Transposase-1 RNA: a 57-nucleotide sequence. The sequence is in the family's curated seed alignment. Pairs were carried over by alignment from the consensus structure, which is taken from published work. By type it is a small RNA.

[Rfam]
RNA sequence: UUCAGAGAUUGCCUCUGUCGUUACCUACAUCAGUAGAUACGGGAAUGCAAUUGUUAA
Numbered sequence: 001u002u003c004a005g006a007g008a009u010u011g012c013c014u015c016u017g018u019c020g021u022u023a024c025c026u027a028c029a030u031c032a033g034u035a036g037a038u039a040c041g042g043g044a045a046u047g048c049a050a051u052u053g054u055u056a057a
Stems, first nucleotide, its partner, number of pairs: 007052006018042004025036003